RNA sequence: CGGUGUCCAUGAUGUUGCUUUUACCUACAUUGUUUGACUCCUCCUGAGAAAAACCCAAAAUCCUGAGACACCU
Dot-bracket structure: .(.((((...........................................................)))).).
This 73-nucleotide sequence from Irena cyanogastra belongs to the Rfam family "Small nucleolar RNA SNORD34". The organism belongs to Irena, within Eukaryota. The family's consensus secondary structure was predicted with PFOLD. Rfam's curators write: snoRNA U34 is found in intron 5 of the ribosomal protein L13a gene in humans. For this family Rfam cites "Purified box C/D snoRNPs are able to reproduce site-specific 2'-O-methylation of target RNA in vitro" (Galardi et al., Mol Cell Biol, 2002).